[Rfam]
RNA sequence: AACCGUUCCGAGGGGGGCCCCGCAUGGGGGCUGAGAUUGGGCGCGUCGCCCUGACCCUUGAACCUGAUCCGGCUCGUACCGGCGGAGGGACGGGAACGGACGGCCGG
Numbered sequence: 001a002a003c004c005g006u007u008c009c010g011a012g013g014g015g016g017g018c019c020c021c022g023c024a025u026g027g028g029g030g031c032u033g034a035g036a037u038u039g040g041g042c043g044c045g046u047c048g049c050c051c052u053g054a055c056c057c058u059u060g061a062a063c064c065u066g067a068u069c070c071g072g073c074u075c076g077u078a079c080c081g082g083c084g085g086a087g088g089g090a091c092g093g094g095a096a097c098g099g100a101c102g103g104c105c106g107g
Stems, first nucleotide, its partner, number of pairs: 006095005011058004016052001017031005039051004063088003069082004